[Rfam]
RNA: Small Cajal body specific RNA 1
Organism: Kryptolebias marmoratus
RNA sequence: AUGCACCAGAUACGAGCCUGACAGUCUACAUCCAAGAUGUGUCGCACACUGGGGUUUAUCUGUGGCUGCACGGCUUCAAACGGUGCGAGAGGAACGUCAGCCCUGAGAUUUAAGCCCGUCAGUGGAGAGCAGCACUGACGAGUUAUAACUCAGAGGCACAGAU
Numbered sequence: 001a002u003g004c005a006c007c008a009g010a011u012a013c014g015a016g017c018c019u020g021a022c023a024g025u026c027u028a029c030a031u032c033c034a035a036g037a038u039g040u041g042u043c044g045c046a047c048a049c050u051g052g053g054g055u056u057u058a059u060c061u062g063u064g065g066c067u068g069c070a071c072g073g074c075u076u077c078a079a080a081c082g083g084u085g086c087g088a089g090a091g092g093a094a095c096g097u098c099a100g101c102c103c104u105g106a107g108a109u110u111u112a113a114g115c116c117c118g119u120c121a122g123u124g125g126a127g128a129g130c131a132g133c134a135c136u137g138a139c140g141a142g143u144u145a146u147a148a149c150u151c152a153g154a155g156g157c158a159c160a161g162a163u
Stems, first nucleotide, its partner, number of pairs: 003086005015075004022068005027058002030055004035050002038048003100157003119138005140151004